[Rfam]
RNA sequence: CUCAGUUGGCAGGGGUUUCUUUCGGCCUUCAGCUGUUCCCAAGUCUGUAGGCCGGCGGAAACUACUUGCCGGCUGCG
Number, nucleotide and partner (000 for none) at each position: 001c000002u000003c000004a000005g073006u072007u071008g070009g000010c068011a067012g066013g065014g063015g062016u061017u060018u059019c058020u057021u000022u055023c054024g053025g052026c051027c050028u049029u000030c047031a046032g045033c000034u000035g000036u000037u000038c000039c000040c000041a000042a000043g000044u000045c032046u031047g030048u000049a028050g027051g026052c025053c024054g023055g022056c000057g020058g019059a018060a017061a016062c015063u014064a000065c013066u012067u011068g010069c000070c008071g007072g006073c005074u000075g000076c000077g000
Rfam assigns this 77-nucleotide RNA sequence from Diatraea saccharalis to the family "mir-2796 microRNA precursor family". Rfam links the family to the GO terms miRNA-mediated post-transcriptional gene silencing and RISC complex. The organism belongs to Diatraea, within Eukaryota. A search with the family's covariance model found it, with a score of 85 bits.